[Rfam]
RNA sequence: AGGCCAUGGUGUGGACACCGUCUCUGUAAUUCCUUAAAUCAUUUCCAAGUUUCAUAUAAUGAUUCACCAUCAUGUUGAACAAAAGUAAUGAUAUCAUUUCUGAGUUU
Numbered sequence: 001a002g003g004c005c006a007u008g009g010u011g012u013g014g015a016c017a018c019c020g021u022c023u024c025u026g027u028a029a030u031u032c033c034u035u036a037a038a039u040c041a042u043u044u045c046c047a048a049g050u051u052u053c054a055u056a057u058a059a060u061g062a063u064u065c066a067c068c069a070u071c072a073u074g075u076u077g078a079a080c081a082a083a084a085g086u087a088a089u090g091a092u093a094u095c096a097u098u099u100c101u102g103a104g105u106u107u
Stems, first nucleotide, its partner, number of pairs: 001107001003105002005102002057074002
RNA: Plant small nucleolar RNA R71
Organism: Protea cynaroides